t44 RNA: a 99-nucleotide RNA from Saccharospirillum sp. MSK14-1. This family consists of a number of bacterial RNA genes of between 135 and 170 bases in length. The t44 gene has been identified in several species of enteric bacteria but homologs have also been identified in Pseudomonas and Coxiella species. The t44 gene is found between the map and rpsB genes in all species in the full alignment apart from Shigella flexneri. The match comes from Rfam's covariance-model search (67 bits). The family's RNA type in Rfam is small RNA. Pairs were carried over by alignment from the consensus structure, which was predicted with LocARNA.
RNA sequence: CGCUGGUGAAUCCUAACUCUCACAUGCGCCGGCACAUGAUUCCGGGUGCCUUUGCCCAAACGGGCCGAGGUUGGAUCAUGGGGCGUGUGGAGGCUUAAC
Numbered sequence: 001c002g003c004u005g006g007u008g009a010a011u012c013c014u015a016a017c018u019c020u021c022a023c024a025u026g027c028g029c030c031g032g033c034a035c036a037u038g039a040u041u042c043c044g045g046g047u048g049c050c051u052u053u054g055c056c057c058a059a060a061c062g063g064g065c066c067g068a069g070g071u072u073g074g075a076u077c078a079u080g081g082g083g084c085g086u087g088u089g090g091a092g093g094c095u096u097a098a099c
Stems, first nucleotide, its partner, number of pairs: 023089008035080008048071005